[Rfam]
Notes: Group II catalytic intron D1-D4-4: a 138-nucleotide sequence from Roseiarcus fermentans. The literature on the family includes a 2001 paper in EMBO J by Chu et al., "Control of branch-site choice by a group II intron". NCBI's taxonomy places the organism under Bacteria, Pseudomonadota, Alphaproteobacteria, Hyphomicrobiales, Roseiarcus. Group II introns are found in rRNA, tRNA and mRNA of organelles in fungi, plants and protists, and also in mRNA in bacteria. Rfam 15.1 lists 840 matches to the family in 506 species. Rfam links the family to the GO term Group II intron splicing.

RNA sequence: UAGUGGAGGAAGGUUCCACCCGGAUAUUUGUCGGUAGGUCCGGUAGCUGACGAGCGGUUUUGGCGAGCGAUUGCUGGGAUCGAAGCCUCGUGACAAAGGCCGCGUGGCGGCUGAGCGAUCCGGCGGGCCGCAAUGUGA
Numbered sequence: 001u002a003g004u005g006g007a008g009g010a011a012g013g014u015u016c017c018a019c020c021c022g023g024a025u026a027u028u029u030g031u032c033g034g035u036a037g038g039u040c041c042g043g044u045a046g047c048u049g050a051c052g053a054g055c056g057g058u059u060u061u062g063g064c065g066a067g068c069g070a071u072u073g074c075u076g077g078g079a080u081c082g083a084a085g086c087c088u089c090g091u092g093a094c095a096a097a098g099g100c101c102g103c104g105u106g107g108c109g110g111c112u113g114a115g116c117g118a119u120c121c122g123g124c125g126g127g128c129c130g131c132a133a134u135g136u137g138a
Stems, first nucleotide, its partner, number of pairs: 020043005050091005055082006064073001066071001098112006115131003